A member of the RNA family "Small nucleolar RNA R44/J54/Z268 family" from Carya illinoinensis, 87 nucleotides long.
Its Rfam clan is "SNORD74 clan".
Gene Ontology terms of the family: nucleolus and RNA processing.
[Rfam]
RNA sequence: ACUGCAGGUGAUGAUAAAACAGACAGGGACAUCUGUACUCCUUCGGAGGAUGAUGACUUGUUCUAAUGGGAAUCUCUCUGAUGCAGA
Numbered sequence: 001a002c003u004g005c006a007g008g009u010g011a012u013g014a015u016a017a018a019a020c021a022g023a024c025a026g027g028g029a030c031a032u033c034u035g036u037a038c039u040c041c042u043u044c045g046g047a048g049g050a051u052g053a054u055g056a057c058u059u060g061u062u063c064u065a066a067u068g069g070g071a072a073u074c075u076c077u078c079u080g081a082u083g084c085a086g087a
Base pairs, nucleotide, nucleotide: 002086003085004084005083006082